RNA sequence: CCAGAUGGCUGGAUGACCGCGCUUGUUCUUUUUGGGCAAGGGAGGAAAGUCCGGGCUCCACACAGACACGGUGCCGGUUAACGACCGGCGGGGGCGACCCUAGGGAAAGUGCCACAGAAAGCAAACCGCCCAGGCUUGCCUGGGUAAGGGUGAAAGGGUGCGGUAAGAGCGCACCGCGUCCCUGGCAACAGGGAUGGCACGGUAAACCCCACCGGGUGCAAGAUCGAGAAGGACGACCAGGGGCUUAGGGCCUCAAGCGGGUUUGUGCGCUGUCGUUCGGGUGUAUCGCGCGAGGCGUCUGGUAACAGGCGUCCCAGAUGAAUGGUCAUCCAUCCUUUUCUUUAUGGAAAAGGGGGACAGAACCCGGCUUACAGGCCAUCUGGUCCA
Numbered sequence: 001c002c003a004g005a006u007g008g009c010u011g012g013a014u015g016a017c018c019g020c021g022c023u024u025g026u027u028c029u030u031u032u033u034g035g036g037c038a039a040g041g042g043a044g045g046a047a048a049g050u051c052c053g054g055g056c057u058c059c060a061c062a063c064a065g066a067c068a069c070g071g072u073g074c075c076g077g078u079u080a081a082c083g084a085c086c087g088g089c090g091g092g093g094g095c096g097a098c099c100c101u102a103g104g105g106a107a108a109g110u111g112c113c114a115c116a117g118a119a120a121g122c123a124a125a126c127c128g129c130c131c132a133g134g135c136u137u138g139c140c141u142g143g144g145u146a147a148g149g150g151u152g153a154a155a156g157g158g159u160g161c162g163g164u165a166a167g168a169g170c171g172c173a174c175c176g177c178g179u180c181c182c183u184g185g186c187a188a189c190a191g192g193g194a195u196g197g198c199a200c201g202g203u204a205a206a207c208c209c210c211a212c213c214g215g216g217u218g219c220a221a222g223a224u225c226g227a228g229a230a231g232g233a234c235g236a237c238c239a240g241g242g243g244c245u246u247a248g249g250g251c252c253u254c255a256a257g258c259g260g261g262u263u264u265g266u267g268c269g270c271u272g273u274c275g276u277u278c279g280g281g282u283g284u285a286u287c288g289c290g291c292g293a294g295g296c297g298u299c300u301g302g303u304a305a306c307a308g309g310c311g312u313c314c315c316a317g318a319u320g321a322a323u324g325g326u327c328a329u330c331c332a333u334c335c336u337u338u339u340c341u342u343u344a345u346g347g348a349a350a351a352g353g354g355g356g357a358c359a360g361a362a363c364c365c366g367g368c369u370u371a372c373a374g375g376c377c378a379u380c381u382g383g384u385c386c387a
Stems, first nucleotide, its partner, number of pairs: 001383010011372001012330007020042001022040007047370003051367005056218001058216002065264002069214005074088005089103001090101004104209002109207002111203003126149002128145007157175006176198001177196008222287003231278006256271004294313008
RNA: Bacterial RNase P class A